[Rfam]
RNA sequence: GGAGUUCUUGCUUCAACAGUGUUUGAACGGAACUUU
Numbered sequence: 001g002g003a004g005u006u007c008u009u010g011c012u013u014c015a016a017c018a019g020u021g022u023u024u025g026a027a028c029g030g031a032a033c034u035u036u
Base pairs, nucleotide, nucleotide: 001036002035003034004033005032006031007030008029010028012027013026014025015024016023017021
The record is a 36-nucleotide RNA from Gasterosteus aculeatus, which matches "Iron response element I" in Rfam. For this family Rfam cites "An atypical iron-responsive element (IRE) within crayfish ferritin mRNA and an iron regulatory protein 1 (IRP1)-like protein from crayfish hepatopancreas" (Huang et al., Insect Biochem Mol Biol, 1999). It is annotated as a cis-regulatory element. The family's consensus secondary structure is taken from published work. Rfam links the family to the GO term response to iron ion. The sequence is in the family's curated seed alignment.